[Rfam]
This 425-nucleotide RNA sequence from Corynebacterium diphtheriae belongs to the Rfam family "Bacterial RNase P class A". Rfam classes the family as a ribozyme.

Nucleotides: 425
Stems, first nucleotide, its partner, number of pairs: 001421009011410001012367007020063002023060008068408003072405005077240004084303004089236005095107004109123001110121004124231002129229002131225002146170002148166008178196006198220001199218008244323003253315003257311002295307004330351004334345004
Number, partner (000 for none) and nucleotide at each position: 001421u002420g003419a004418g005417c006416c007415g008414g009413c010000u011410g012367g013366g014365c015364g016363a017362u018361c019000g020063c021062g022000a023060c024059u025058u026057u027056g028055c029054g030053u031000a032000c033000c034000a035000c036000a037000u038000g039000c040000g041000a042000u043000g044000a045000a046000c047000a048000u049000g050000g051000u052000g053030g054029c055028g056027c057026a058025a059024g060023g061000a062021c063020g064000a065000g066000g067000a068408a069407a070406g071000u072405c073404c074403g075402g076401a077240c078239u079238c080237c081000a082000c083000a084303g085302a086301g087300c088000a089236c090235g091234g092233u093232g094000a095107u096106u097105g098104u099000u100000a101000a102000c103000a104098a105097c106096a107095a108000c109123c110121c111120g112119g113118g114000g115000u116000g117000a118113c119112c120111c121110g122000c123109g124231g125230g126000c127000a128000a129229g130228u131225g132224c133000a134000a135000c136000a137000g138000a139000a140000a141000g142000u143000a144000a145000a146170c147169c148166g149165c150164c151163u152162a153161g154160a155159a156000u157000u158000u159155u160154u161153c162152u163151a164150g165149g166148u167000a168000a169147g170146g171000g172000u173000g174000a175000a176000a177000c178196g179195g180194u181193g182192c183191g184000g185000u186000a187000a188000g189000a190000g191183c192182g193181c194180a195179c196178c197000a198220g199218c200217g201216a202215g203214g204213u205212a206211g207000g208000u209000g210000a211206c212205u213204a214203c215202c216201u217200c218199g219000g220198c221000u222000a223000g224132g225131u226000a227000a228130a229129c230125c231124c232093c233092a234091c235090u236089g237080g238079g239078a240077g241000c242000a243000a244323g245322g246321c247000a248000u249000u250000a251000g252000g253315g254314c255313g256000u257311a258310c259000c260000g261000u262000c263000g264000u265000u266000u267000c268000a269000g270000a271000c272000g273000g274000u275000a276000u277000g278000u279000c280000u281000g282000c283000a284000c285000g286000a287000a288000c289000g290000c291000u292000u293000g294000a295307a296306g297305g298304c299000u300087g301086c302085u303084c304298g305297c306296c307295u308000g309000a310258g311257u312000u313255c314254g315253u316000g317000g318000g319000u320000a321246g322245c323244u324000g325000c326000u327000u328000g329000a330351g331350g332349c333348g334345g335344c336343c337342a338000g339000u340000g341000a342337u343336g344335g345334u346000u347000u348333c349332g350331u351330c352000c353000a354000g355000a356000u357000g358000g359000a360000u361018g362017a363016u364015c365014g366013c367012c368000g369000c370000u371000g372000a373000u374000c375000u376000c377000c378000g379000c380000u381000u382000g383000u384000c385000g386000g387000g388000g389000g390000u391000g392000a393000g394000u395000a396000c397000a398000g399000a400000a401076u402075c403074c404073g405072g406070c407069u408068u409000a410011u411000a412000u413009g414008c415007u416006g417005g418004c419003u420002c421001a422000u423000u424000c425000g
Source information: Rfam's curators put it in the seed alignment.